[Rfam]
RNA: FMN riboswitch aptamer (RFN element)
Organism: Calidithermus roseus
Nucleotides: 158
Base pairs, nucleotide, nucleotide: 003156004155005154006153007152008151009150010149017029018028019027031138032137033127034126035074036073037072038071069125070124078102079101080100081099107123108122109121110120111119129141130140131139
Number, partner (000 for none) and nucleotide at each position: 001000g002000a003156c004155u005154u006153c007152c008151u009150u010149c011000g012000g013000g014000g015000c016000g017029g018028g019027g020000u021000g022000c023000g024000a025000u026000u027019c028018c029017c030000c031138a032137c033127c034126g035074g036073c037072g038071g039000u040000g041000a042000g043000c044000c045000c046000c047000c048000g049000g050000u051000c052000u053000g054000c055000g056000g057000a058000c059000c060000g061000u062000g063000g064000c065000g066000g067000a068000a069125g070124c071038c072037c073036g074035c075000g076000a077000a078102g079101c080100c081099c082000a083000g084000g085000a086000a087000a088000u089000c090000u091000a092000g093000u094000a095000a096000c097000c098000u099081g100080g101079g102078c103000c104000c105000g106000a107123u108122u109121c110120g111119g112000u113000g114000a115000g116000a117000a118000u119111c120110c121109g122108a123107a124070g125069c126034c127033g128000a129141c130140c131139g132000u133000g134000a135000c136000a137032g138031u139131c140130g141129g142000g143000a144000u145000g146000g147000g148000a149010g150009a151008a152007g153006g154005a155004g156003g157000a158000g